[Rfam]
RNA sequence: UGGUUAUAGCUAAACAAAUAAGAAGUUUACUGGCCGGUUGUUGUGAAAUUUUCAAUCUCUGUCGACAAAUCUGCUUACCGAAUUUCUUACAAUU
Numbered sequence: 001u002g003g004u005u006a007u008a009g010c011u012a013a014a015c016a017a018a019u020a021a022g023a024a025g026u027u028u029a030c031u032g033g034c035c036g037g038u039u040g041u042u043g044u045g046a047a048a049u050u051u052u053c054a055a056u057c058u059c060u061g062u063c064g065a066c067a068a069a070u071c072u073g074c075u076u077a078c079c080g081a082a083u084u085u086c087u088u089a090c091a092a093u094u
Stems, first nucleotide, its partner, number of pairs: 020088008032075003036071004040066004
RNA: Small nucleolar RNA snoR109
Organism: Coptis chinensis